[Rfam]
The record is a 122-nucleotide sequence from Fulvimarina pelagi, which matches "Rhizobiales sRNA Atu_C8" in Rfam. Taxonomically the source falls in Fulvimarina pelagi (Bacteria, Pseudomonadota, Alphaproteobacteria, Hyphomicrobiales). It is annotated as a small RNA. Rfam's curators put it in the seed alignment. The literature on the family includes a 2012 paper in RNA Biol by Wilms et al., "Deep sequencing uncovers numerous small RNAs on all four replicons of the plant pathogen Agrobacterium tumefaciens".

RNA sequence: GACGAACACGACCAUUCUCGUAAUCGUACGAAGGCGCACACGACCGGCAGCGUAGCUGCCAGGCGAAUGCCACGUGUGCGCGAAGACAGGGGCCCUCCAGAGGCCCUUUUUUUAUGCUUGCA
Numbered sequence: 001g002a003c004g005a006a007c008a009c010g011a012c013c014a015u016u017c018u019c020g021u022a023a024u025c026g027u028a029c030g031a032a033g034g035c036g037c038a039c040a041c042g043a044c045c046g047g048c049a050g051c052g053u054a055g056c057u058g059c060c061a062g063g064c065g066a067a068u069g070c071c072a073c074g075u076g077u078g079c080g081c082g083a084a085g086a087c088a089g090g091g092g093c094c095c096u097c098c099a100g101a102g103g104c105c106c107u108u109u110u111u112u113u114a115u116g117c118u119u120g121c122a
Stems, first nucleotide, its partner, number of pairs: 009026001030117001032115001034081009046060005063070002088107004093102001095100001